[Rfam]
RNA: mir-375 microRNA precursor family
RNA sequence: UUUGGCGUGAGCUUUCCGGCAAAACUGGAUACGAUGCAAAGUUUUGUUCGUUUGGCUCGCGUUGAUC
Numbered sequence: 001u002u003u004g005g006c007g008u009g010a011g012c013u014u015u016c017c018g019g020c021a022a023a024a025c026u027g028g029a030u031a032c033g034a035u036g037c038a039a040a041g042u043u044u045u046g047u048u049c050g051u052u053u054g055g056c057u058c059g060c061g062u063u064g065a066u067c
Stems, first nucleotide, its partner, number of pairs: 002065002005062009017050002019047004024042002